The family of this 120-nucleotide sequence from Streptomyces showdoensis is "Streptomyces RNA 4115". The pairing is the family consensus, mapped onto this sequence. Rfam classes the family as a small RNA. Rfam's curators write: Identified by deep sequencing of transcriptome at the end of exponential growth phase.
[Rfam]
RNA sequence: GCGUGGGUCGGCCCACUUGGCCGAGGACCGUUGUCCGGGUCCGGUGGGCUGGGGGACACCGCCGCCCCAUUCCCCGCGGGCGGCGGACGGCUCCGGGAGGCGACCGCCUCCCGGACUGCC
Numbered sequence: 001g002c003g004u005g006g007g008u009c010g011g012c013c014c015a016c017u018u019g020g021c022c023g024a025g026g027a028c029c030g031u032u033g034u035c036c037g038g039g040u041c042c043g044g045u046g047g048g049c050u051g052g053g054g055g056a057c058a059c060c061g062c063c064g065c066c067c068c069a070u071u072c073c074c075c076g077c078g079g080g081c082g083g084c085g086g087a088c089g090g091c092u093c094c095g096g097g098a099g100g101c102g103a104c105c106g107c108c109u110c111c112c113g114g115a116c117u118g119c120c
Stems, first nucleotide, its partner, number of pairs: 001119002007088002009051009052057001059086009090117001092115010